[Rfam]
The family of this 92-nucleotide sequence from Desulfitobacterium metallireducens is "Glycine riboswitch aptamer". Lineage of the source: Bacteria > Bacillota > Eubacteriales > Desulfitobacterium > Desulfitobacterium metallireducens.
RNA sequence: UGACAGCACUCUGGAGAGACCCAAAUUGGGCGCCGAAGGGGCAACAUAAGAUUAUUUUUAAAUCUCUCAGGCAAAAGGACAGAGUAUUAGUU
Numbered sequence: 001u002g003a004c005a006g007c008a009c010u011c012u013g014g015a016g017a018g019a020c021c022c023a024a025a026u027u028g029g030g031c032g033c034c035g036a037a038g039g040g041g042c043a044a045c046a047u048a049a050g051a052u053u054a055u056u057u058u059u060a061a062a063u064c065u066c067u068c069a070g071g072c073a074a075a076a077g078g079a080c081a082g083a084g085u086a087u088u089a090g091u092u
Base pairs, nucleotide, nucleotide: 006087008085009084010083011082012081013080020030021029022028023027032072033071034070035068036067039066040065041064046058
The base pairs follow the family's consensus structure.